[Rfam]
RNA sequence: AAAAUAAAGGAGCAAUACUAAACUUCUUCUAUCAAGAAGUUUAGUAUUGCUCCUUUAU
Dot-bracket structure: .....((((((((((((...((.((((.......)))).))...))))))))))))..
Rfam assigns this 58-nucleotide sequence to the family "Plastid-psbA-4 3UTR RNA". Rfam classes the family as a cis-regulatory element. A reference for the family is Richter et al. (2023), "Retrograde signaling in plants: A critical review focusing on the GUN pathway and beyond", Plant Commun. Rfam's curators put it in the seed alignment. Its Rfam clan is "Plastid-psbA 3UTR RNA clan". About the family: Plastid psbA-4 is a non-coding RNA (ncRNA) present in plastids. It was identified in inverted repeat sequences in the 3 prime untranslate region (3UTR) of photosystem II quinone-binding protein (psbA).